The record is a 393-nucleotide sequence from Alkalinema sp. CACIAM 70d, which matches "Bacterial RNase P class A" in Rfam. The source organism's lineage runs through Bacteria, Bacillati, Leptolyngbyales, Leptolyngbyaceae and Alkalinema. Its family is annotated with ribonuclease P activity, tRNA processing and dimeric ribonuclease P complex in the Gene Ontology.

[Rfam]
RNA sequence: AGAGCCAGCGAGGCGGUUGCGGAGGAGAUUCCCUCUGAGGAAAGUCCGGGCUCCCGAAAGACCAGACUUGCUGGGUAACGCCCAGUGCGAGCGAUCGUGAGGAUAGUGCCACAGAAACAUACCGCCCCUAGGAUCUUAAUUUUUAGGAUCUGAAAGGUAAGGGUGCAAAGGUGCGGUAAGAGCGCACCAGCAGCAUCGUGAGGUGCUGGCUCGGUAAACCCCGGUGGGGAGCAAGGCCGAUGGAACCAGGGUUGGUCUUUUUCCAGUUCCGUGCCGCAGGGGCAACUUUGCGGAGUGCCGCUUGAGGCUGUUGGUAACAACCGUCCUAGAUAGAUAACUGCCCGCGUCAGCUUGCUGAUGUGAACAGAACCCGGCUUAUGUCUGACUCUUCUC
Numbered sequence: 001a002g003a004g005c006c007a008g009c010g011a012g013g014c015g016g017u018u019g020c021g022g023a024g025g026a027g028a029u030u031c032c033c034u035c036u037g038a039g040g041a042a043a044g045u046c047c048g049g050g051c052u053c054c055c056g057a058a059a060g061a062c063c064a065g066a067c068u069u070g071c072u073g074g075g076u077a078a079c080g081c082c083c084a085g086u087g088c089g090a091g092c093g094a095u096c097g098u099g100a101g102g103a104u105a106g107u108g109c110c111a112c113a114g115a116a117a118c119a120u121a122c123c124g125c126c127c128c129u130a131g132g133a134u135c136u137u138a139a140u141u142u143u144u145a146g147g148a149u150c151u152g153a154a155a156g157g158u159a160a161g162g163g164u165g166c167a168a169a170g171g172u173g174c175g176g177u178a179a180g181a182g183c184g185c186a187c188c189a190g191c192a193g194c195a196u197c198g199u200g201a202g203g204u205g206c207u208g209g210c211u212c213g214g215u216a217a218a219c220c221c222c223g224g225u226g227g228g229g230a231g232c233a234a235g236g237c238c239g240a241u242g243g244a245a246c247c248a249g250g251g252u253u254g255g256u257c258u259u260u261u262u263c264c265a266g267u268u269c270c271g272u273g274c275c276g277c278a279g280g281g282g283c284a285a286c287u288u289u290g291c292g293g294a295g296u297g298c299c300g301c302u303u304g305a306g307g308c309u310g311u312u313g314g315u316a317a318c319a320a321c322c323g324u325c326c327u328a329g330a331u332a333g334a335u336a337a338c339u340g341c342c343c344g345c346g347u348c349a350g351c352u353u354g355c356u357g358a359u360g361u362g363a364a365c366a367g368a369a370c371c372c373g374g375c376u377u378a379u380g381u382c383u384g385a386c387u388c389u390u391c392u393c
Stems, first nucleotide, its partner, number of pairs: 001389004006384003011379001012342007020037006042377003046374005051231004060277001066225002069223002071085005086100001087098004101221002106219002108215003122162002124158003129153001131151008170188006190210001191208007235299003247290006268282003272278001306325003310321004